[Rfam]
RNA sequence: GCACCAAAUCUUUCCCAUUCCUUACUGUGCAGUGUGGGCCUGGGGACACAUGGUGCUUACAGAAUAGCAGAGUAAAUCCAGACAGGUGACUUCCAUUCAUCGAGUACCUGUCUCUACACCUCUGCAACAGUU
Numbered sequence: 001g002c003a004c005c006a007a008a009u010c011u012u013u014c015c016c017a018u019u020c021c022u023u024a025c026u027g028u029g030c031a032g033u034g035u036g037g038g039c040c041u042g043g044g045g046a047c048a049c050a051u052g053g054u055g056c057u058u059a060c061a062g063a064a065u066a067g068c069a070g071a072g073u074a075a076a077u078c079c080a081g082a083c084a085g086g087u088g089a090c091u092u093c094c095a096u097u098c099a100u101c102g103a104g105u106a107c108c109u110g111u112c113u114c115u116a117c118a119c120c121u122c123u124g125c126a127a128c129a130g131u132u
Base pairs, nucleotide, nucleotide: 001056002055003054004053005052012046013045014044015043016042017041020038021037067125068124069123070122071121072120080113081112082111083110084109085108086107087106094104